Record summary
Shown here is a 55-nucleotide RNA from Salvelinus namaycush, a member of the family "U7 small nuclear RNA". On this family, see Mowry and Steitz, Science 1987: "Identification of the human U7 snRNP as one of several factors involved in the 3' end maturation of histone premessenger RNA's". The organism belongs to Salvelinus, within Eukaryota. It scores 37 bits against the family's covariance model.
RNA sequence: GAACAUUUGUUCUUUUAGUAUUUCUCCAGUAGGUUUCUUCAAUAAGAAAGCCUCC
Numbered sequence: 001g002a003a004c005a006u007u008u009g010u011u012c013u014u015u016u017a018g019u020a021u022u023u024c025u026c027c028a029g030u031a032g033g034u035u036u037c038u039u040c041a042a043u044a045a046g047a048a049a050g051c052c053u054c055c
Base pairs, nucleotide, nucleotide: 032052033051034050035048036047037046038045039044